[Rfam]
RNA sequence: CCCCGUCCCGACGCUCUCCCCCCCCCAGCGUUGGGACUCUCCCCGAGCCGGGCUCCGGCGCUCCUCCCCCCCCCGGAGCGCCGGAGCCCGGCUCCCCC
Number, nucleotide and partner (000 for none) at each position: 001c000002c000003c000004c000005g037006u036007c035008c034009c033010g032011a000012c030013g029014c028015u000016c000017u000018c000019c000020c000021c000022c000023c000024c000025c000026c000027a000028g014029c013030g012031u000032u010033g009034g008035g007036a006037c005038u000039c000040u000041c000042c000043c000044c000045g094046a093047g092048c091049c090050g089051g088052g087053c086054u085055c000056c083057g082058g081059c080060g079061c078062u077063c076064c075065u000066c000067c000068c000069c000070c000071c000072c000073c000074c000075g064076g063077a062078g061079c060080g059081c058082c057083g056084g000085a054086g053087c052088c051089c050090g049091g048092c047093u046094c045095c000096c000097c000098c000
RNA: Streptomyces RNA 3202
Organism: Streptomyces cyaneogriseus